Background
Listeria sRNA rli41: a 493-nucleotide sequence from Listeria innocua. The family's consensus secondary structure was predicted with RNAalifold.
RNA sequence: UAGUAAGAUUUGUUCUUUUGUUUUGAUUUAAGAGGAGGUAUUUUCUAUGACUAAAGUUAUUUUAACUAUUAUCGCAAUUAUCGUUCCAGCAUUUCUUGGAUUUUUAUUUGCUUAUCAGAUUUAUAAGAAAAAAACUGCCACUUAUAUGCCACUAAAAAAUGAAUUUGUACACUGGGCAAAGUAAGCAUCUAAUAGGGAGGGAAUCAAGGUGAAAAAAACAGAAAGUGAAAAACCGCUUGUCAUCAAAAUUGUUAUUAGUGUUCUUGUUGGUUUAUUUUUACUUAAUUUAAUGCCAUUCUUAGCGAUCUUCGGUUAAUUUUUUUACUUAAUAGUGCUUGAAGCAGCUUAUUUUUUAUGGUAUAUUGUAAAUUGUGUUGAAAUGAAUAGCAAUUUUUUAUGGUGAGACAAUUAAUGACAGAGAUGUCAGUUAAUGCUUUUUUUAUAAAAAGACUCCAGAGUGCCGAUUUCGCGGUGUUCUUGGGUCUUUUUUUGU
Numbered sequence: 001u002a003g004u005a006a007g008a009u010u011u012g013u014u015c016u017u018u019u020g021u022u023u024u025g026a027u028u029u030a031a032g033a034g035g036a037g038g039u040a041u042u043u044u045c046u047a048u049g050a051c052u053a054a055a056g057u058u059a060u061u062u063u064a065a066c067u068a069u070u071a072u073c074g075c076a077a078u079u080a081u082c083g084u085u086c087c088a089g090c091a092u093u094u095c096u097u098g099g100a101u102u103u104u105u106a107u108u109u110g111c112u113u114a115u116c117a118g119a120u121u122u123a124u125a126a127g128a129a130a131a132a133a134a135c136u137g138c139c140a141c142u143u144a145u146a147u148g149c150c151a152c153u154a155a156a157a158a159a160u161g162a163a164u165u166u167g168u169a170c171a172c173u174g175g176g177c178a179a180a181g182u183a184a185g186c187a188u189c190u191a192a193u194a195g196g197g198a199g200g201g202a203a204u205c206a207a208g209g210u211g212a213a214a215a216a217a218a219c220a221g222a223a224a225g226u227g228a229a230a231a232a233c234c235g236c237u238u239g240u241c242a243u244c245a246a247a248a249u250u251g252u253u254a255u256u257a258g259u260g261u262u263c264u265u266g267u268u269g270g271u272u273u274a275u276u277u278u279u280a281c282u283u284a285a286u287u288u289a290a291u292g293c294c295a296u297u298c299u300u301a302g303c304g305a306u307c308u309u310c311g312g313u314u315a316a317u318u319u320u321u322u323u324a325c326u327u328a329a330u331a332g333u334g335c336u337u338g339a340a341g342c343a344g345c346u347u348a349u350u351u352u353u354u355a356u357g358g359u360a361u362a363u364u365g366u367a368a369a370u371u372g373u374g375u376u377g378a379a380a381u382g383a384a385u386a387g388c389a390a391u392u393u394u395u396u397a398u399g400g401u402g403a404g405a406c407a408a409u410u411a412a413u414g415a416c417a418g419a420g421a422u423g424u425c426a427g428u429u430a431a432u433g434c435u436u437u438u439u440u441u442a443u444a445a446a447a448a449g450a451c452u453c454c455a456g457a458g459u460g461c462c463g464a465u466u467u468c469g470c471g472g473u474g475u476u477c478u479u480g481g482g483u484c485u486u487u488u489u490u491u492g493u
Base pairs, nucleotide, nucleotide: 003443004442005441006440007439008438020406021405022404023403024402029144030143031142032141034139035138038135039134041131042130043129044128045127046126047060048059049058050057051056074111075110076109077108079106080105085100086099087098088097089096148401149400150399151398153397154396155395156394157393158392159391160390177269178268179267184262185261186260187259188258221241222240223238224237225236226235227234270385271384272383273382274381275380276379277378278377280375281374283372284371285370286369287368288367289366290361291360292359293358294357295356296355299316300315301314302313303312333343334342335341408432409431410430411429412428413426414425415424416423417422444489445488446487447486448485449484450483451482452481453480455478456477457476458475461472462471463470
The organism belongs to Listeria, within Bacteria.